[Rfam]
RNA sequence: UAGUCAAAGAAGAAACGCCCGUUUCUCACCUUACUAGCCAAAGUAGCUACAUAAGGUCAAUCUAGUUGAUUUUUUCAAAUCAGCUGUAAUUUUUUUAUGAAAAAUGAGCAGGGCGUUUUGUGUCCUGUUUUUUUAUUGUUUA
Numbered sequence: 001u002a003g004u005c006a007a008a009g010a011a012g013a014a015a016c017g018c019c020c021g022u023u024u025c026u027c028a029c030c031u032u033a034c035u036a037g038c039c040a041a042a043g044u045a046g047c048u049a050c051a052u053a054a055g056g057u058c059a060a061u062c063u064a065g066u067u068g069a070u071u072u073u074u075u076c077a078a079a080u081c082a083g084c085u086g087u088a089a090u091u092u093u094u095u096u097a098u099g100a101a102a103a104a105u106g107a108g109c110a111g112g113g114c115g116u117u118u119u120g121u122g123u124c125c126u127g128u129u130u131u132u133u134u135a136u137u138g139u140u141u142a
Stems, first nucleotide, its partner, number of pairs: 011026006028057003035049004107129010